[Rfam]
RNA sequence: ACAAAACAUCAAGAGCAGGGCUGACGUCCUCGCCAACCUGCCUACCUGGGCAAGGUGGUUGCUUAAUUGCGAUGUGGUCGAUCUGACAACCAAUCAGGAAAAC
Numbered sequence: 001a002c003a004a005a006a007c008a009u010c011a012a013g014a015g016c017a018g019g020g021c022u023g024a025c026g027u028c029c030u031c032g033c034c035a036a037c038c039u040g041c042c043u044a045c046c047u048g049g050g051c052a053a054g055g056u057g058g059u060u061g062c063u064u065a066a067u068u069g070c071g072a073u074g075u076g077g078u079c080g081a082u083c084u085g086a087c088a089a090c091c092a093a094u095c096a097g098g099a100a101a102a103c
Stems, first nucleotide, its partner, number of pairs: 006075005015031001017030005032059003037055003040051003045098004077087004
The record is a 103-nucleotide RNA sequence from Leucothrix pacifica, which matches "SAM-I/IV (S-adenosyl methionine) riboswitch aptamer" in Rfam. A search with the family's covariance model found it, with a score of 72 bits. Pairs were carried over by alignment from the consensus structure, which is taken from published work. Gene Ontology terms of the family: regulation of gene expression and S-adenosylmethionine metabolic process. The source organism's lineage runs through Bacteria, Pseudomonadati, Gammaproteobacteria, Thiotrichaceae and Leucothrix. The family is grouped with related families in Rfam's "SAM clan".